[Rfam]
RNA sequence: GGGCUGGCUAUAGCUCAGCGGUUCCUUCGAACUACCAGCUACAUUUAAGCUACUAAGUCAGCACGUCAGUGUUGGUUCGAGUCCCGCGGGCGCUCCCCAGCCUUUUU
Numbered sequence: 001g002g003g004c005u006g007g008c009u010a011u012a013g014c015u016c017a018g019c020g021g022u023u024c025c026u027u028c029g030a031a032c033u034a035c036c037a038g039c040u041a042c043a044u045u046u047a048a049g050c051u052a053c054u055a056a057g058u059c060a061g062c063a064c065g066u067c068a069g070u071g072u073u074g075g076u077u078c079g080a081g082u083c084c085c086g087c088g089g090g091c092g093c094u095c096c097c098c099a100g101c102c103u104u105u106u107u
Base pairs, nucleotide, nucleotide: 002102003101004100005099006098007097013091014090015089016088018087019086020085021084026081027080028079029078030077031076032075033074034073
Rfam assigns this 107-nucleotide sequence from Oryctolagus cuniculus to the family "Vault RNA".
Rfam's curators put it in the seed alignment.